[Rfam]
RNA sequence: ACAAAGGCUCUUCUCAGAGCCACCCAAAAACUCAUGGAAGAGCCA
Numbered sequence: 001a002c003a004a005a006g007g008c009u010c011u012u013c014u015c016a017g018a019g020c021c022a023c024c025c026a027a028a029a030a031c032u033c034a035u036g037g038a039a040g041a042g043c044c045a
Base pairs, nucleotide, nucleotide: 006021007020008019009018010017011016
Histone 3' UTR stem-loop: a 45-nucleotide RNA from Vombatus ursinus.
The mRNAs of metazoan histone genes lack a poly-A tail. 3' end processing occurs at a site between a highly conserved stem-loop (modelled by this family) and a purine rich region around 20 nts downstream (the histone downstream element, or HDE).
The family has 50 seed sequences and 44,596 matches in Rfam 15.1.
The base pairs follow the family's consensus structure, which is taken from published work.